Notes: Shown here is a 287-nucleotide RNA sequence from Coptotermes formosanus, a member of the family "Nuclear RNase P".
RNA sequence: GCCAGUGACAAGCUUGCACCAGGGGCUUACCUGCAGGGUACUAGUUACCCAGAACAGCCCCGGGAAGGUCUGAGUAAGGGUCUGGCAACACUCUAGCAGGGUGGCCUGUUAAAGGGGUGUGAGAGAAUAGAAACAGCGAGAGUGGAGCGGCAGUUGUCUGGGAUGCCAAUUGUGGCUGAGGCUGAGCUGCGUCACUUUCAUGGAAACUCUCAUGACCUGCAGUUUUAGUGCAAUGUGCAAGUAGGACUGUGUGUCCCUAACUCAAUUCAGACUACUCUGUGGCUGGC
Numbered sequence: 001g002c003c004a005g006u007g008a009c010a011a012g013c014u015u016g017c018a019c020c021a022g023g024g025g026c027u028u029a030c031c032u033g034c035a036g037g038g039u040a041c042u043a044g045u046u047a048c049c050c051a052g053a054a055c056a057g058c059c060c061c062g063g064g065a066a067g068g069u070c071u072g073a074g075u076a077a078g079g080g081u082c083u084g085g086c087a088a089c090a091c092u093c094u095a096g097c098a099g100g101g102u103g104g105c106c107u108g109u110u111a112a113a114g115g116g117g118u119g120u121g122a123g124a125g126a127a128u129a130g131a132a133a134c135a136g137c138g139a140g141a142g143u144g145g146a147g148c149g150g151c152a153g154u155u156g157u158c159u160g161g162g163a164u165g166c167c168a169a170u171u172g173u174g175g176c177u178g179a180g181g182c183u184g185a186g187c188u189g190c191g192u193c194a195c196u197u198u199c200a201u202g203g204a205a206a207c208u209c210u211c212a213u214g215a216c217c218u219g220c221a222g223u224u225u226u227a228g229u230g231c232a233a234u235g236u237g238c239a240a241g242u243a244g245g246a247c248u249g250u251g252u253g254u255c256c257c258u259a260a261c262u263c264a265a266u267u268c269a270g271a272c273u274a275c276u277c278u279g280u281g282g283c284u285g286g287c
Base pairs, nucleotide, nucleotide: 001287002286003285004284008280009279010278013241014240015239016238017237018236019235022061023060024059025058026057036050037049038048039047040046070270071269072268073267074266079217080216081215082214089103090102091101092100093099104118105117106116107115119213120212121211122210123209124208125207140199141198142197244256245255246254247253